A member of the RNA family "Small nucleolar RNA SNORA75" from Tupaia belangeri, 137 nucleotides long. Rfam's curators write: U23 belongs to the H/ACA class of snoRNAs. snoRNAs bind a number of proteins (including dyskerin, Gar1p and Nop10p in the case of the H/ACA class) to form snoRNP complexes. This class are thought to guide the sites of modification of uridines to pseudouridines by forming direct base pairing interactions with substrate RNAs. Targets include ribosomal and spliceosomal RNAs as well as the Trypanosoma spliced leader RNA (SL RNA) as possibly other, still unknown cellular RNAs. U23 can direct the pseudouridylation of U97 in human 18S rRNA (Bachellerie JP, Ganot, P unpublished data). U23 is encoded within intron 12 of the nucleolin gene in human, mouse, rat chicken, and Xenopus laevis. A reference for the family is Bachellerie et al. (2002), "The expanding snoRNA world", Biochimie. Rfam 15.1 lists 414 matches to the family in 310 species. A search with the family's covariance model found it, with a score of 119 bits. Gene Ontology terms of the family: RNA processing and nucleolus.

RNA sequence: GCCUUCUCAUUGAGCUCCUUUCUGUCCACUGGUGGCAGUUAAUGGAUUCGCACGAGAAGAAGAGACAAUUCACAGAAGUAGCAAUACUUUUUAUCUCUGUCUUUACAGGGGUAUAUUGGCUAUUUUGUGAGACAUUU
Number, nucleotide and partner (000 for none) at each position: 001g000002c000003c059004u058005u057006c056007u055008c054009a000010u000011u000012g000013a000014g051015c050016u046017c045018c044019u000020u000021u000022c038023u037024g036025u035026c034027c000028a000029c000030u000031g000032g000033u000034g026035g025036c024037a023038g022039u000040u000041a000042a000043u000044g018045g017046a016047u000048u000049c000050g015051c014052a000053c000054g008055a007056g006057a005058a004059g003060a000061a000062g000063a000064g000065a000066c000067a000068a000069u000070u130071c129072a128073c127074a126075g125076a000077a000078g000079u000080a000081g000082c000083a000084a000085u000086a000087c000088u000089u000090u000091u000092u000093a000094u111095c110096u109097c108098u107099g106100u000101c000102u000103u000104u000105a000106c099107a098108g097109g096110g095111g094112u000113a000114u000115a000116u000117u000118g000119g000120c000121u000122a000123u000124u000125u075126u074127g073128u072129g071130a070131g000132a000133c000134a000135u000136u000137u000